[Rfam]
RNA sequence: ACCCCACUCUAUUAAGCCGACGGGCCAGGGUGUGUCCCCGGUCCGUGGUAAAGGGUGGGCACAGCAACGCCGGCCGUGUGUAGGGUGUGGCCCCCAACCCUAGGGCCACACCCAAGAAAGGCUGGCCACA
Numbered sequence: 001a002c003c004c005c006a007c008u009c010u011a012u013u014a015a016g017c018c019g020a021c022g023g024g025c026c027a028g029g030g031u032g033u034g035u036c037c038c039c040g041g042u043c044c045g046u047g048g049u050a051a052a053g054g055g056u057g058g059g060c061a062c063a064g065c066a067a068c069g070c071c072g073g074c075c076g077u078g079u080g081u082a083g084g085g086u087g088u089g090g091c092c093c094c095c096a097a098c099c100c101u102a103g104g105g106c107c108a109c110a111c112c113c114a115a116g117a118a119a120g121g122c123u124g125g126c127c128a129c130a
Base pairs, nucleotide, nucleotide: 020046021045022044023043024042025041026040071124072123073122074121083113084112085111086110087109088108089107090106091105092104093103
The family of this 130-nucleotide sequence from Chionoecetes opilio is "Small nucleolar RNA snoR639/H1". NCBI's taxonomy places the organism under Eukaryota, Opisthokonta, Bilateria, Eubrachyura, Chionoecetes. snoR639 or snoH1 belongs to the H/ACA class of snoRNAs which are thought to guide the sites of modification of uridines to pseudouridines. snoH1 is found in an intron of the mfl gene in Drosophila.